[Rfam]
RNA sequence: AACUUAUCAAGAAAGGUGGAGGGAUUGGCCCUGUGAAACCUUAGCAACCAGAUGACUUAUAAUCUAAGGUGCUAAAUCCAACCUAUUAGAGGGAAAGAUGAGUA
Number, nucleotide and partner (000 for none) at each position: 001a000002a103003c102004u101005u100006a099007u098008c097009a000010a000011g000012a000013a042014a041015g040016g039017u038018g000019g000020a000021g031022g030023g029024a000025u081026u080027g079028g078029c023030c022031c021032u000033g000034u000035g000036a000037a000038a017039c016040c015041u014042u013043a073044g072045c071046a070047a000048c069049c068050a065051g064052a063053u062054g000055a000056c000057u000058u000059a000060u000061a000062a053063u052064c051065u050066a000067a000068g049069g048070u046071g045072c044073u043074a000075a000076a000077u096078c028079c027080a026081a025082c093083c092084u091085a000086u000087u000088a000089g000090a000091g084092g083093g082094a000095a000096a077097g008098a007099u006100g005101a004102g003103u002104a000
Overview
This 104-nucleotide RNA sequence from Empedobacter falsenii belongs to the Rfam family "SAM riboswitch aptamer (S box leader)". It scores 89 bits against the family's covariance model. Pairs were carried over by alignment from the consensus structure, which is taken from published work. Lineage of the source: Bacteria > Pseudomonadati > Flavobacteriia > Flavobacteriales > Empedobacter. Rfam describes the family as follows. The SAM riboswitch is found upstream of a number of genes which code for proteins involved in methionine or cysteine biosynthesis in Gram-positive bacteria.